[Rfam]
Rfam assigns this 154-nucleotide sequence from Thermocatellispora tengchongensis to the family "c-di-AMP riboswitch aptamer (ydaO/yuaA leader)". The source organism's lineage runs through Bacteria, Actinomycetota, Actinomycetes, Streptosporangiaceae and Thermocatellispora. Rfam describes the family as follows. This family represents a conserved RNA structure found upstream of the ydaO and yuaA genes in Bacillus subtilis and related genes in other bacteria. It scores 82 bits against the family's covariance model.
RNA sequence: GGAGUGCGGCCGCCGAGUCCGCGCAAGCGGAGCCGGGGACCCAGUUUCCCUUGGGGUGAAUCGGCGGGCAGUCCCCGAAACGGGAUGGCCCGUCGUAGGGCGCCUUCCAGGCCCGAACCCGUCAGCUAACCCGGUAGGCGGCAUGGAAGAAGGA
Number, nucleotide and partner (000 for none) at each position: 001g000002g000003a000004g000005u000006g000007c000008g000009g000010c000011c140012g139013c138014c137015g000016a000017g000018u031019c030020c029021g000022c000023g000024c000025a000026a000027g000028c000029g020030g019031a018032g135033c134034c133035g132036g131037g130038g000039a000040c000041c000042c053043a052044g000045u000046u000047u000048c000049c000050c000051u000052u043053g042054g120055g119056g118057u000058g000059a000060a000061u000062c095063g094064g093065c092066g091067g090068g089069c088070a000071g000072u000073c000074c000075c000076c000077g000078a000079a000080a000081c000082g000083g000084g000085a000086u000087g000088g069089c068090c067091c066092g065093u064094c063095g062096u000097a000098g114099g113100g112101c111102g000103c000104c000105u000106u000107c000108c000109a000110g000111g101112c100113c099114c098115g000116a000117a000118c056119c055120c054121g000122u000123c000124a000125g000126c000127u000128a000129a000130c037131c036132c035133g034134g033135u032136a000137g014138g013139c012140g011141g000142c000143a000144u000145g000146g000147a000148a000149g000150a000151a000152g000153g000154a000